[Rfam]
RNA sequence: GCCGGCCUUUGGUAGUGGCCCCCGGACCUCGUACGAGCACCGUGGGCCUCGAUCGAAGACCGGC
Number, nucleotide and partner (000 for none) at each position: 001g064002c063003c062004g061005g060006c000007c058008u000009u056010u055011g054012g053013u052014a000015g000016u000017g048018g047019c046020c045021c044022c000023c042024g041025g040026a000027c000028c037029u036030c000031g000032u000033a000034c000035g000036a029037g028038c000039a000040c025041c024042g023043u000044g021045g020046g019047c018048c017049u000050c000051g000052a013053u012054c011055g010056a009057a000058g007059a000060c005061c004062g003063g002064c001